[Rfam]
RNA sequence: GGUAGUUCUUGGGUGACGCACCCUGGAACCGAGCUCUCUCUUCUCUGGUUCCAGGUGUGCCACCUGAGAACCACA
Numbered sequence: 001g002g003u004a005g006u007u008c009u010u011g012g013g014u015g016a017c018g019c020a021c022c023c024u025g026g027a028a029c030c031g032a033g034c035u036c037u038c039u040c041u042u043c044u045c046u047g048g049u050u051c052c053a054g055g056u057g058u059g060c061c062a063c064c065u066g067a068g069a070a071c072c073a074c075a
Stems, first nucleotide, its partner, number of pairs: 002074002005071011017059001019057004025052007033044001
RNA: mir-9223 microRNA precursor family